[Rfam]
RNA sequence: GCAGGUACGGGGACAUGGUGCCGCGGACGAUAGCGGGGAAGGUUGUGGGAGGGGUGUGCUCGCUGAGCGGAGUGCUCGUCAUCGCCCUGCCCGUCCCCGUCAUCGUGUCCAAU
Numbered sequence: 001g002c003a004g005g006u007a008c009g010g011g012g013a014c015a016u017g018g019u020g021c022c023g024c025g026g027a028c029g030a031u032a033g034c035g036g037g038g039a040a041g042g043u044u045g046u047g048g049g050a051g052g053g054g055u056g057u058g059c060u061c062g063c064u065g066a067g068c069g070g071a072g073u074g075c076u077c078g079u080c081a082u083c084g085c086c087c088u089g090c091c092c093g094u095c096c097c098c099g100u101c102a103u104c105g106u107g108u109c110c111a112a113u
Base pairs, nucleotide, nucleotide: 001113004110005109006107007106008105009104010103012101013100014099017096018095020094021093036076037075039073049061050060
Potassium channel RNA editing signal: a 113-nucleotide sequence from Folsomia candida.
The match comes from Rfam's covariance-model search (74 bits).
The organism belongs to Folsomia, within Eukaryota.
This family represents a group of sequences related to the human potassium channel Kv1.1 hairpin element which directs the efficient modification of an adenosine to inosine by an adenosine deaminase acting on RNA (ADAR). The ADAR modification causes an isoleucine/valine recoding event which lies in the ion-conducting pore of the potassium channel. It is thought that this editing event targets the process of fast inactivation and allows a more rapid recovery from inactivation at negative potentials.
For this family Rfam cites "Control of human potassium channel inactivation by editing of a small mRNA hairpin" (Bhalla et al., Nat Struct Mol Biol, 2004).